[Rfam]
RNA sequence: UAUAUGUAAAGGCAAACUAUUCGAAAGAAUAGGACGCAAAGCCAAGGGUCUAAGGGUUUAUAGUGAGUAUAAUUUCCUAUAAACUACGACAGCCGGUUGCCCAA
Dot-bracket structure: ...........((...((((((....))))))...))..((((..(((((....(.((......................)).)...)))..))))))......
Numbered sequence: 001u002a003u004a005u006g007u008a009a010a011g012g013c014a015a016a017c018u019a020u021u022c023g024a025a026a027g028a029a030u031a032g033g034a035c036g037c038a039a040a041g042c043c044a045a046g047g048g049u050c051u052a053a054g055g056g057u058u059u060a061u062a063g064u065g066a067g068u069a070u071a072a073u074u075u076c077c078u079a080u081a082a083a084c085u086a087c088g089a090c091a092g093c094c095g096g097u098u099g100c101c102c103a104a
Stems, first nucleotide, its partner, number of pairs: 012037002017032006040098004046094002048090003055084001057082002
The record is a 104-nucleotide sequence from Cytobacillus dafuensis, which matches "c-di-GMP-I riboswitch aptamer" in Rfam. The base pairs follow the family's consensus structure, which is taken from published work. It scores 74 bits against the family's covariance model.